[Rfam]
RNA sequence: GCAAGGGUAGGAAAGUCUGGUUAAAUCCGUGUGACUUAAGAUCUCAUCCAUUCGGUUCGCGAGUUCGAAUCUCGCCUCUUGCA
Numbered sequence: 001g002c003a004a005g006g007g008u009a010g011g012a013a014a015g016u017c018u019g020g021u022u023a024a025a026u027c028c029g030u031g032u033g034a035c036u037u038a039a040g041a042u043c044u045c046a047u048c049c050a051u052u053c054g055g056u057u058c059g060c061g062a063g064u065u066c067g068a069a070u071c072u073c074g075c076c077u078c079u080u081g082c083a
Base pairs, nucleotide, nucleotide: 001082002081003080004079005078006077007076010028011027012026030046031045033043034042059075060074061073062072063071
tRNA: an 83-nucleotide RNA sequence from Dictyostelium discoideum. The family's RNA type in Rfam is transfer RNA. The sequence is in the family's curated seed alignment. The base pairs follow the family's consensus structure, which is taken from published work. Gene Ontology term of the family: triplet codon-amino acid adaptor activity.